Streptomyces-metH RNA: a 149-nucleotide RNA sequence from Actinacidiphila rubida. NCBI's taxonomy places the organism under Bacteria, Bacillati, Actinomycetes, Kitasatosporales, Actinacidiphila. By type it is a small RNA.
RNA sequence: CCCGUCCGCCCCUCGGAAUCCAUCGAGUCUUGUGAGUGGCGGCGGCUACGCUGGCGGGGUGCGCCUCCUUCGCGGGCGGCCCCGGCCCGGGGUCUCCCCGCACGGACCGCAUAGCCGACAGCCGUCGCACUCCAGGGAGCAUCCCCAUG
Numbered sequence: 001c002c003c004g005u006c007c008g009c010c011c012c013u014c015g016g017a018a019u020c021c022a023u024c025g026a027g028u029c030u031u032g033u034g035a036g037u038g039g040c041g042g043c044g045g046c047u048a049c050g051c052u053g054g055c056g057g058g059g060u061g062c063g064c065c066u067c068c069u070u071c072g073c074g075g076g077c078g079g080c081c082c083c084g085g086c087c088c089g090g091g092g093u094c095u096c097c098c099c100g101c102a103c104g105g106a107c108c109g110c111a112u113a114g115c116c117g118a119c120a121g122c123c124g125u126c127g128c129a130c131u132c133c134a135g136g137g138a139g140c141a142u143c144c145c146c147a148u149g
Stems, first nucleotide, its partner, number of pairs: 060111004066106003114128002117126003